[Rfam]
RNA sequence: CUCUGACGCUGGGGGUGCCCAUACCUUAAAUUCACGGGCUGAGAUCACACCCUUUGAACCUGAUCCGGUUAGUGCCGGUGUAGGGAAGGCAAAUGUCCUCAUCA
Numbered sequence: 001c002u003c004u005g006a007c008g009c010u011g012g013g014g015g016u017g018c019c020c021a022u023a024c025c026u027u028a029a030a031u032u033c034a035c036g037g038g039c040u041g042a043g044a045u046c047a048c049a050c051c052c053u054u055u056g057a058a059c060c061u062g063a064u065c066c067g068g069u070u071a072g073u074g075c076c077g078g079u080g081u082a083g084g085g086a087a088g089g090c091a092a093a094u095g096u097c098c099u100c101a102u103c104a
Stems, first nucleotide, its partner, number of pairs: 008090003011053004016047001017039004059084004065078004

The family of this 104-nucleotide RNA from Tenderia electrophaga is "TPP riboswitch aptamer (THI element)".